The family of this 54-nucleotide RNA is "Streptococcus sRNA SpF59 (ldcC RNA)".
Rfam's curators put it in the seed alignment.
For this family Rfam cites "Control of virulence by small RNAs in Streptococcus pneumoniae" (Mann et al., PLoS Pathog, 2012).
RNA sequence: AGCCCACUAUUAUGAAAUAGUUAAGCCCAUACGGACAGGCGGGGCUGCUGCCGG
Dot-bracket structure: (((((((((((....))))))....................)))))........